[Rfam]
RNA sequence: AAAGUCAACGGUACAAUGAUUGAAAUGAAAGAGGCCAAACGGAGUUGACUUUUUUUUUUCU
Number, nucleotide and partner (000 for none) at each position: 001a052002a051003a050004g049005u048006c047007a046008a045009c044010g000011g000012u000013a000014c000015a000016a000017u000018g000019a000020u000021u000022g000023a000024a000025a000026u000027g000028a000029a000030a000031g000032a000033g000034g000035c000036c000037a000038a000039a000040c000041g000042g000043a000044g009045u008046u007047g006048a005049c004050u003051u002052u001053u000054u000055u000056u000057u000058u000059u000060c000061u000

Bacillus-plasmid RNA: a 61-nucleotide RNA sequence from Brassica napus. It is annotated as a small RNA. It scores 31 bits against the family's covariance model.